The record is a 74-nucleotide sequence from Anaeromassilibacillus sp. An172, which matches "Fluoride riboswitch aptamer (crcB RNA motif)" in Rfam. The match comes from Rfam's covariance-model search (49 bits). The family's consensus secondary structure is taken from published work.
RNA sequence: AAAGGUAAGGGGAAUGAAGUUCUCCCCGGGAUAAAUCCCGAACCGCAAUUAUUGCUGAUGACUUCUGCGAAAUU
Numbered sequence: 001a002a003a004g005g006u007a008a009g010g011g012g013a014a015u016g017a018a019g020u021u022c023u024c025c026c027c028g029g030g031a032u033a034a035a036u037c038c039c040g041a042a043c044c045g046c047a048a049u050u051a052u053u054g055c056u057g058a059u060g061a062c063u064u065c066u067g068c069g070a071a072a073u074u
Base pairs, nucleotide, nucleotide: 010026011025012024013023016065017064018063019062020061021060045055046054047053